Shown here is an 88-nucleotide sequence from Peromyscus maniculatus, a member of the family "Small nucleolar RNA SNORD86". From the family's description: U86 belongs to the C/D family of snoRNAs. It is the human orthologue of Xenopus laevis U86 and has no identified RNA target.
RNA sequence: AGUUCCUGGGACUGGAAUCCUGGUCUUUAUGUCAUUUCCCCAGCUCUGUGUAGGGGGGAGAUAUACAGACCUGGUCCUCUGAGAAACU
Numbered sequence: 001a002g003u004u005c006c007u008g009g010g011a012c013u014g015g016a017a018u019c020c021u022g023g024u025c026u027u028u029a030u031g032u033c034a035u036u037u038c039c040c041c042a043g044c045u046c047u048g049u050g051u052a053g054g055g056g057g058g059a060g061a062u063a064u065a066c067a068g069a070c071c072u073g074g075u076c077c078u079c080u081g082a083g084a085a086a087c088u
Base pairs, nucleotide, nucleotide: 001088002087003086004085006083010079011078019074020073022071023070024069025068026067028063030061032059033058035056039054040053041050042049
Dot-bracket structure: ((((.(...((.......((.(((((.(.(.((.(...((((......))..)).).)).).)...))))).))...))...).))))
Rfam links the family to the GO terms nucleolus and RNA processing. Rfam classes the family as a C/D-box small nucleolar RNA.